[Rfam]
RNA sequence: GGUGUGCGUAGACACUACCUUCACGUGGUGCACUCUGGGCAACGUAUACUCAUACGGCAAAAAAGUUUAU
Numbered sequence: 001g002g003u004g005u006g007c008g009u010a011g012a013c014a015c016u017a018c019c020u021u022c023a024c025g026u027g028g029u030g031c032a033c034u035c036u037g038g039g040c041a042a043c044g045u046a047u048a049c050u051c052a053u054a055c056g057g058c059a060a061a062a063a064a065g066u067u068u069a070u
Stems, first nucleotide, its partner, number of pairs: 001036002004033004017029003043056005
HDV ribozyme from F. prausnitzii: a 70-nucleotide RNA sequence from Rodentolepis nana. A search with the family's covariance model found it, with a score of 48 bits. The family's consensus secondary structure is taken from published work. The organism belongs to Rodentolepis, within Eukaryota. On this family, see Webb et al., Science 2009: "Widespread occurrence of self-cleaving ribozymes". Its family is annotated with catalytic activity in the Gene Ontology.